[Rfam]
RNA: Bacterial RNase P class B
RNA sequence: GUUUUUGGAUAAUUGCGCGGUUUCUUGGAGUAAUCCUUGUGAAUCGUGAGGAAAGUCCAUGCUCGCGCGGGCUGCGAUGCCCGCAGUGUUUGUGCUAGGCGAAACCAUAAGCCUAGGUAGGUUUGUCAGACCUAACGGCUGAAUUUUAGCUAAGUUUUCUCACGAAAAUAGGCGACGAAUUCUGUAAAAGUGCCAUAGAGACGAGUUGCUUUGGAAACAGAGCAAGUGGAACGUGGUAAACCCCUCAAGCGAGCAACCCAAACUUAUGGUAGGGGCACUUGUCACGCGGAAAUUGAACGCACGACGAGGCUAUUUUUAGGCUUGCUUAAAAAUAGCAGACAGAUGAUUAUCGAAGGUUGGCUGAACGGUCAACUGGAACAAAACAUGGCUUAUAGAA
Numbered sequence: 001g002u003u004u005u006u007g008g009a010u011a012a013u014u015g016c017g018c019g020g021u022u023u024c025u026u027g028g029a030g031u032a033a034u035c036c037u038u039g040u041g042a043a044u045c046g047u048g049a050g051g052a053a054a055g056u057c058c059a060u061g062c063u064c065g066c067g068c069g070g071g072c073u074g075c076g077a078u079g080c081c082c083g084c085a086g087u088g089u090u091u092g093u094g095c096u097a098g099g100c101g102a103a104a105c106c107a108u109a110a111g112c113c114u115a116g117g118u119a120g121g122u123u124u125g126u127c128a129g130a131c132c133u134a135a136c137g138g139c140u141g142a143a144u145u146u147u148a149g150c151u152a153a154g155u156u157u158u159c160u161c162a163c164g165a166a167a168a169u170a171g172g173c174g175a176c177g178a179a180u181u182c183u184g185u186a187a188a189a190g191u192g193c194c195a196u197a198g199a200g201a202c203g204a205g206u207u208g209c210u211u212u213g214g215a216a217a218c219a220g221a222g223c224a225a226g227u228g229g230a231a232c233g234u235g236g237u238a239a240a241c242c243c244c245u246c247a248a249g250c251g252a253g254c255a256a257c258c259c260a261a262a263c264u265u266a267u268g269g270u271a272g273g274g275g276c277a278c279u280u281g282u283c284a285c286g287c288g289g290a291a292a293u294u295g296a297a298c299g300c301a302c303g304a305c306g307a308g309g310c311u312a313u314u315u316u317u318a319g320g321c322u323u324g325c326u327u328a329a330a331a332a333u334a335g336c337a338g339a340c341a342g343a344u345g346a347u348u349a350u351c352g353a354a355g356g357u358u359g360g361c362u363g364a365a366c367g368g369u370c371a372a373c374u375g376g377a378a379c380a381a382a383a384c385a386u387g388g389c390u391u392a393u394a395g396a397a
Base pairs, nucleotide, nucleotide: 004397005396006395007393008351009350010349011348012347013346014345016048017047018046019045020044021043022042023041053391054390055389057388058387059386060385061384062253063252064251065250066249067084068083069082070081071080072079090248091247092246094244095116096115097114098113099112100111117136118134119133120132121131122130123129137243138242139184141182142181147175149173150172154169155168156167157166158165159164190241191240192237193236194235206225207224208223209222210221211220212219213218257274258273259272278308279307280306281305282304283303309336310335311334312333313332314331315330316329317328318327319326320325355374356373357372358371359370360369361368